[Rfam]
Nucleotides: 185
Stems, first nucleotide, its partner, number of pairs: 002020003007015003029128003033124007041114003047108002050105001052104003069093003073089002094099001137181004144175001146173001150168003153164001155162002
Number, partner (000 for none) and nucleotide at each position: 001000a002020g003019c004018u005000u006000u007015u008014a009013u010000c011000a012000g013009g014008u015007a016000u017000c018004a019003g020002c021000a022000a023000u024000u025000g026000c027000c028000u029128u030127u031126u032000g033124u034123u035122a036121g037120g038119g039118g040000a041114a042113a043112g044000a045000a046000u047108g048107a049000g050105g051000a052104a053103g054102g055000u056000a057000c058000c059000a060000a061000a062000g063000a064000g065000u066000a067000g068000c069093a070092g071091a072000u073089u074088u075000g076000u077000a078000a079000g080000c081000u082000u083000u084000a085000g086000a087000c088074a089073g090000u091071u092070c093069u094099g095000a096000g097000u098000g099094c100000u101000u102054u103053u104052u105050c106000a107048u108047u109000u110000u111000a112043c113042u114041u115000c116000a117000u118039c119038c120037u121036u122035u123034a124033a125000g126031g127030a128029g129000u130000g131000c132000a133000g134000u135000c136000a137181c138180u139179u140178g141000g142000c143000a144175u145000a146173c147000c148000u149000a150168c151167u152166u153164c154000g155162u156161u157000u158000u159000u160000a161156a162155g163000g164153g165000a166152a167151a168150g169000a170000a171000c172000a173146g174000c175144g176000a177000a178140c179139a180138g181137g182000c183000a184000g185000c